A member of the RNA family "R2 RNA element" from Agrilus planipennis, 186 nucleotides long. Rfam classes the family as a cis-regulatory element. The organism belongs to Agrilus, within Eukaryota. A reference for the family is Ruschak et al. (2004), "Secondary structure models of the 3' untranslated regions of diverse R2 RNAs", RNA.
[Rfam]
RNA sequence: AAAUUACAUUUACGUUAUAGUCUAAGUUCUUUUGAUCGGCUGAAGAGGACCCUAGUUGGUCCUAGAACGGCCUGAGGUAGAGGGGUUUUAGUCGGUAGGUCCGAGGACUUCUUCCUCGGGAAUCCGACACUACCCAGUCGUACGGACGGCUGGGUGUCUUUUGAAGAUUUCCCCUCUUCCACGAAA
Numbered sequence: 001a002a003a004u005u006a007c008a009u010u011u012a013c014g015u016u017a018u019a020g021u022c023u024a025a026g027u028u029c030u031u032u033u034g035a036u037c038g039g040c041u042g043a044a045g046a047g048g049a050c051c052c053u054a055g056u057u058g059g060u061c062c063u064a065g066a067a068c069g070g071c072c073u074g075a076g077g078u079a080g081a082g083g084g085g086u087u088u089u090a091g092u093c094g095g096u097a098g099g100u101c102c103g104a105g106g107a108c109u110u111c112u113u114c115c116u117c118g119g120g121a122a123u124c125c126g127a128c129a130c131u132a133c134c135c136a137g138u139c140g141u142a143c144g145g146a147c148g149g150c151u152g153g154g155u156g157u158c159u160u161u162u163g164a165a166g167a168u169u170u171c172c173c174c175u176c177u178u179c180c181a182c183g184a185a186a
Stems, first nucleotide, its partner, number of pairs: 026050006056185002059182002076180002079177002082173003091128005100120008130156001132155005